Background:
The record is a 112-nucleotide RNA sequence from Cynara cardunculus, which matches "Plastid-psbA-1 3UTR RNA" in Rfam. Taxonomically the source falls in Cynara cardunculus subsp. cardunculus (Eukaryota, Spermatophyta, Gunneridae, Asteraceae). The family's consensus secondary structure was predicted with LocARNA. Rfam classes the family as a cis-regulatory element. The literature on the family includes a 2023 paper in Plant Commun by Richter et al., "Retrograde signaling in plants: A critical review focusing on the GUN pathway and beyond".
[Rfam]
RNA sequence: UCGAGUUUUGACAAAAUAAUUAACUAUUAUCUUUAUAAGAAAAUUAUAUUAUUAAACCAAAAGGAGCAAUAGCUUCCUUCUUGUUUUAUCAAGAGGACGUUAUUGCUCCUUU
Numbered sequence: 001u002c003g004a005g006u007u008u009u010g011a012c013a014a015a016a017u018a019a020u021u022a023a024c025u026a027u028u029a030u031c032u033u034u035a036u037a038a039g040a041a042a043a044u045u046a047u048a049u050u051a052u053u054a055a056a057c058c059a060a061a062a063g064g065a066g067c068a069a070u071a072g073c074u075u076c077c078u079u080c081u082u083g084u085u086u087u088a089u090c091a092a093g094a095g096g097a098c099g100u101u102a103u104u105g106c107u108c109c110u111u112u
Stems, first nucleotide, its partner, number of pairs: 008015001060112013075097002078095005
A search with the family's covariance model found it, with a score of 58 bits.